[Rfam]
Shown here is a 255-nucleotide RNA sequence from Oceanobacillus oncorhynchi, a member of the family "T-box leader". It scores 98 bits against the family's covariance model. The source organism's lineage runs through Bacteria, Bacillati, Bacillota, Bacilli and Oceanobacillus.
RNA sequence: UCAAAAGCGUUGAAGAGAAGAGUAAAUAUAAGGGAAGCAUAACAGAGAACUCCGGAAGCUGAAAAGGAGGAUGCGGAACUAUAUUGAAGCAAGCCUCGUAGCUGCACAUUGGAUUGUUAUAUGAUGAUGUGCCGGUGCUCCCGUUAUCGAGAAAAGCAAUGAUUUGCUGUUGCUUAUGGAGGUUUCUGCAGCGAUGCAGAAACAGAAUGAGGUGGCACCACGAUCUUCUGUGAUAUAAGAAGUCCCGUCCUCAAA
Numbered sequence: 001u002c003a004a005a006a007g008c009g010u011u012g013a014a015g016a017g018a019a020g021a022g023u024a025a026a027u028a029u030a031a032g033g034g035a036a037g038c039a040u041a042a043c044a045g046a047g048a049a050c051u052c053c054g055g056a057a058g059c060u061g062a063a064a065a066g067g068a069g070g071a072u073g074c075g076g077a078a079c080u081a082u083a084u085u086g087a088a089g090c091a092a093g094c095c096u097c098g099u100a101g102c103u104g105c106a107c108a109u110u111g112g113a114u115u116g117u118u119a120u121a122u123g124a125u126g127a128u129g130u131g132c133c134g135g136u137g138c139u140c141c142c143g144u145u146a147u148c149g150a151g152a153a154a155a156g157c158a159a160u161g162a163u164u165u166g167c168u169g170u171u172g173c174u175u176a177u178g179g180a181g182g183u184u185u186c187u188g189c190a191g192c193g194a195u196g197c198a199g200a201a202a203c204a205g206a207a208u209g210a211g212g213u214g215g216c217a218c219c220a221c222g223a224u225c226u227u228c229u230g231u232g233a234u235a236u237a238a239g240a241a242g243u244c245c246c247g248u249c250c251u252c253a254a255a
Stems, first nucleotide, its partner, number of pairs: 007102002015097003025085006038073003050069004105131007133143003182203007209252004220248003
Dot-bracket structure: ......((......(((.......((((((.......(((.........((((............)))).)))......)))))).........)))...))..(((((((.............))))))).(((.....)))......................................(((((((........))))))).....((((.......(((.......................)))))))...